[Rfam]
RNA sequence: GGAAGUGUAUUCUUUAGUGUGAUGCCACUACUGUACUUAGAUCACUAGCUUCUCGUUAGCAGGUCUAUCAGCACGUGACGUCACGCGCUCGUUGUCAGGCUACGCUUCUUGUAACGUGCGCUGCGGACGAUCGCCCGCGCGGCUGCGACGGCCCGGCGGCGCACUUUCCUUGGGCGGCCUCUCCCUAAACCUUACGCGGUUUUAGUUAACUCGUUAGCUUAGCUCCGGUUUAAUCUCGAGCACUUCCAUACUAUGGCGGCGAGAGCAAUACUCGAAUGCCAGCUUUUUUG
Numbered sequence: 001g002g003a004a005g006u007g008u009a010u011u012c013u014u015u016a017g018u019g020u021g022a023u024g025c026c027a028c029u030a031c032u033g034u035a036c037u038u039a040g041a042u043c044a045c046u047a048g049c050u051u052c053u054c055g056u057u058a059g060c061a062g063g064u065c066u067a068u069c070a071g072c073a074c075g076u077g078a079c080g081u082c083a084c085g086c087g088c089u090c091g092u093u094g095u096c097a098g099g100c101u102a103c104g105c106u107u108c109u110u111g112u113a114a115c116g117u118g119c120g121c122u123g124c125g126g127a128c129g130a131u132c133g134c135c136c137g138c139g140c141g142g143c144u145g146c147g148a149c150g151g152c153c154c155g156g157c158g159g160c161g162c163a164c165u166u167u168c169c170u171u172g173g174g175c176g177g178c179c180u181c182u183c184c185c186u187a188a189a190c191c192u193u194a195c196g197c198g199g200u201u202u203u204a205g206u207u208a209a210c211u212c213g214u215u216a217g218c219u220u221a222g223c224u225c226c227g228g229u230u231u232a233a234u235c236u237c238g239a240g241c242a243c244u245u246c247c248a249u250a251c252u253a254u255g256g257c258g259g260c261g262a263g264a265g266c267a268a269u270a271c272u273c274g275a276a277u278g279c280c281a282g283c284u285u286u287u288u289u290g
Stems, first nucleotide, its partner, number of pairs: 001247008019084005031071003040065004045059003255280003
Dot-bracket structure: ((((((((..........(((((.......(((......((((.(((.........)))..))))...)))........)))))...........................................................................................................................................................)))))))).......(((....................)))..........
Arthropod 7SK RNA: a 290-nucleotide RNA from Danaus plexippus. It is annotated as a non-coding RNA gene. The family has 19 seed sequences and 229 matches in Rfam 15.1. Clan: 7SK clan.